[Rfam]
RNA sequence: GCAGGGUAAUGACCUAUGAAUUGACAGCCAGUUUUUUCAUUCAGGCUGCCUGUCAGUUCUGUAGGCCACUGCCCCAC
Numbered sequence: 001g002c003a004g005g006g007u008a009a010u011g012a013c014c015u016a017u018g019a020a021u022u023g024a025c026a027g028c029c030a031g032u033u034u035u036u037u038c039a040u041u042c043a044g045g046c047u048g049c050c051u052g053u054c055a056g057u058u059c060u061g062u063a064g065g066c067c068a069c070u071g072c073c074c075c076a077c
Stems, first nucleotide, its partner, number of pairs: 001077001004074005010068002013065004018059010029048003
mir-192/215 microRNA precursor family: a 77-nucleotide RNA from Silurus meridionalis. A search with the family's covariance model found it, with a score of 73 bits. Rfam's curators write: This family represents the human microRNA (miRNA) precursors mir-192 and mir-215. Animal miRNAs are transcribed as ~70nt precursors and subsequently processed by the Dicer enzyme to give a ~22nt product. In this case the mature sequence comes from the 5' arm of the precursor. The extents of the hairpin precursors are not generally known and are estimated based on hairpin prediction. For this family Rfam cites "New microRNAs from mouse and human" (Lagos-Quintana et al., RNA, 2003). The base pairs follow the family's consensus structure, which was predicted with PFOLD.